[Rfam]
The record is a 76-nucleotide RNA sequence from Oribacterium sinus, which matches "c-di-GMP-I riboswitch aptamer" in Rfam. Its Rfam clan is "c-di-GMP_I riboswitch clan".
RNA sequence: GAUCUGUUUGAGCAAAAUCGGGGAAACCCGGUGACGCAAAGCUAUAGGGCCUGUAAUAUGGCAGCCAGUUGCGAUC
Numbered sequence: 001g002a003u004c005u006g007u008u009u010g011a012g013c014a015a016a017a018u019c020g021g022g023g024a025a026a027c028c029c030g031g032u033g034a035c036g037c038a039a040a041g042c043u044a045u046a047g048g049g050c051c052u053g054u055a056a057u058a059u060g061g062c063a064g065c066c067a068g069u070u071g072c073g074a075u076c
Stems, first nucleotide, its partner, number of pairs: 012037002017032006040070004047066002049062003
The base pairs follow the family's consensus structure, which is taken from published work.